[Rfam]
Source information:
A member of the RNA family "6C RNA" from Gordonia malaquae, 76 nucleotides long.

RNA sequence: AGGCUUUCAGCCCGACCCCCCGGGGCUGAAACGCUGAUGACCCCGACCUCCUCCCCCCUGGUCGGGGUCGUCUUCU
Numbered sequence: 001a002g003g004c005u006u007u008c009a010g011c012c013c014g015a016c017c018c019c020c021c022g023g024g025g026c027u028g029a030a031a032c033g034c035u036g037a038u039g040a041c042c043c044c045g046a047c048c049u050c051c052u053c054c055c056c057c058c059u060g061g062u063c064g065g066g067g068u069c070g071u072c073u074u075c076u
Stems, first nucleotide, its partner, number of pairs: 002035002005031009036072013
The literature on the family includes a 2007 paper in Nucleic Acids Res by Weinberg et al., "Identification of 22 candidate structured RNAs in bacteria using the CMfinder comparative genomics pipeline". By type it is a cis-regulatory element.